Description:
Shown here is a 71-nucleotide RNA sequence from Citrobacter sp. JGM124, a member of the family "MicA sRNA". Rfam classes the family as a small RNA. The organism belongs to Citrobacter, within Bacteria. Rfam links the family to the GO term mRNA binding. Pairs were carried over by alignment from the consensus structure, which was predicted with WAR.
RNA sequence: GAAAGACGCGCAUUUAUUAUCAUCAUCCCUGUAUUCAGUGAUGAAUUUUGGCCACAAGUAUGUGGCCUUUU
Numbered sequence: 001g002a003a004a005g006a007c008g009c010g011c012a013u014u015u016a017u018u019a020u021c022a023u024c025a026u027c028c029c030u031g032u033a034u035u036c037a038g039u040g041a042u043g044a045a046u047u048u049u050g051g052c053c054a055c056a057a058g059u060a061u062g063u064g065g066c067c068u069u070u071u
Stems, first nucleotide, its partner, number of pairs: 024043004029038003050067007